[Rfam]
RNA sequence: AGGGUAGUAUCUUAAUCGAACUGCACCUGUCACAUUCUGUACACAAAUAAAUAGUCUGCCUUGAUCACGCUUUGACAGGGACGGAGAA
Numbered sequence: 001a002g003g004g005u006a007g008u009a010u011c012u013u014a015a016u017c018g019a020a021c022u023g024c025a026c027c028u029g030u031c032a033c034a035u036u037c038u039g040u041a042c043a044c045a046a047a048u049a050a051a052u053a054g055u056c057u058g059c060c061u062u063g064a065u066c067a068c069g070c071u072u073u074g075a076c077a078g079g080g081a082c083g084g085a086g087a088a
Stems, first nucleotide, its partner, number of pairs: 001028003004024005010019002056084003059080005065075003

This 88-nucleotide RNA sequence from Psychrobacillus glaciei belongs to the Rfam family "pan motif". Rfam classes the family as a cis-regulatory element. It scores 60 bits against the family's covariance model. The organism belongs to Psychrobacillus, within Bacteria.